RNA sequence: CCACAUUCACAGGGGUGCUCCGUAUCGCCGGGGCUGAGAUUGAAGACGCCAUGUCUUCUGACCCUUUAGCUGAUCUGGGUAAUGCCAGCGGAGCGAGGUAAAAUGUUUUCCGGU
Numbered sequence: 001c002c003a004c005a006u007u008c009a010c011a012g013g014g015g016u017g018c019u020c021c022g023u024a025u026c027g028c029c030g031g032g033g034c035u036g037a038g039a040u041u042g043a044a045g046a047c048g049c050c051a052u053g054u055c056u057u058c059u060g061a062c063c064c065u066u067u068a069g070c071u072g073a074u075c076u077g078g079g080u081a082a083u084g085c086c087a088g089c090g091g092a093g094c095g096a097g098g099u100a101a102a103a104u105g106u107u108u109u110c111c112g113g114u
Stems, first nucleotide, its partner, number of pairs: 006102002009099002011065004017034005042058007069094003075088004